This 126-nucleotide RNA sequence from Podarcis muralis belongs to the Rfam family "U4atac minor spliceosomal RNA". Lineage of the source: Eukaryota > Deuterostomia > Sauria > Lepidosauria > Podarcis. Rfam describes the family as follows. U4atac is an essential component of the minor U12-type spliceosome complex which is required for removal of the rarer class of eukaryotic introns (AT-AC, U12-type).
RNA sequence: ACCGUCCUUAUCUUGGGGUUGCGCUACUGCUCAAUGAACGUCUAGUGAGAGUAGUACUGCUAACACCUACACAACACAUGAGCAUCCCUGGGGUUUCUACCCCAUUGAGGUGCAAUUUUUGGAACC
Numbered sequence: 001a002c003c004g005u006c007c008u009u010a011u012c013u014u015g016g017g018g019u020u021g022c023g024c025u026a027c028u029g030c031u032c033a034a035u036g037a038a039c040g041u042c043u044a045g046u047g048a049g050a051g052u053a054g055u056a057c058u059g060c061u062a063a064c065a066c067c068u069a070c071a072c073a074a075c076a077c078a079u080g081a082g083c084a085u086c087c088c089u090g091g092g093g094u095u096u097c098u099a100c101c102c103c104a105u106u107g108a109g110g111u112g113c114a115a116u117u118u119u120u121g122g123a124a125c126c
Base pairs, nucleotide, nucleotide: 006018007017008016009015021060022059023058026055027054028053029052030051031050032049038046039045082113083112084111085110086109089104090103091102092101093100094099
Its Rfam clan is "U4 clan". Rfam links the family to the GO terms mRNA 5'-splice site recognition, U4atac snRNP and spliceosomal tri-snRNP complex assembly. The match comes from Rfam's covariance-model search (111 bits). By type it is a spliceosomal small nuclear RNA. For this family Rfam cites "Evolution of spliceosomal snRNA genes in metazoan animals" (Marz et al., J Mol Evol, 2008).